[Rfam]
RNA sequence: GUCUCCUCGUGUUCACUGCAGGCCUUAAUGUAGAACUGUUCAUAAGGCACGCGGUGAAUGCCAAGAGCU
Numbered sequence: 001g002u003c004u005c006c007u008c009g010u011g012u013u014c015a016c017u018g019c020a021g022g023c024c025u026u027a028a029u030g031u032a033g034a035a036c037u038g039u040u041c042a043u044a045a046g047g048c049a050c051g052c053g054g055u056g057a058a059u060g061c062c063a064a065g066a067g068c069u
Stems, first nucleotide, its partner, number of pairs: 003067003009061008018052002023047005030040001